[Rfam]
RNA: Small nucleolar RNA SNORA12
RNA sequence: UAGUGUGGUAGUUUCUGUAUUUGGCAGGUCUGUAACUGUGGCAGAGCAGCCUUAAACUACCACAGACAUCAGAAAGGAGAAAGAUGUGCUGAGAACUUGUUCAAGCUCUUAGUUUUCAGCUUUUUUUUUGCUCCUACAGAA
Numbered sequence: 001u002a003g004u005g006u007g008g009u010a011g012u013u014u015c016u017g018u019a020u021u022u023g024g025c026a027g028g029u030c031u032g033u034a035a036c037u038g039u040g041g042c043a044g045a046g047c048a049g050c051c052u053u054a055a056a057c058u059a060c061c062a063c064a065g066a067c068a069u070c071a072g073a074a075a076g077g078a079g080a081a082a083g084a085u086g087u088g089c090u091g092a093g094a095a096c097u098u099g100u101u102c103a104a105g106c107u108c109u110u111a112g113u114u115u116u117c118a119g120c121u122u123u124u125u126u127u128u129u130g131c132u133c134c135u136a137c138a139g140a141a
Stems, first nucleotide, its partner, number of pairs: 005063007023051003027047001029045004076134004081129001103124003